[Rfam]
RNA sequence: CCACCUUUCUUCUUACAACGGAUCGUCCGGCACGUUCCUGCCGGUGAGAGGACUUGUC
Numbered sequence: 001c002c003a004c005c006u007u008u009c010u011u012c013u014u015a016c017a018a019c020g021g022a023u024c025g026u027c028c029g030g031c032a033c034g035u036u037c038c039u040g041c042c043g044g045u046g047a048g049a050g051g052a053c054u055u056g057u058c
Stems, first nucleotide, its partner, number of pairs: 009050003013047003027044006
A member of the RNA family "msiK RNA", 58 nucleotides long. The base pairs follow the family's consensus structure, which is taken from published work.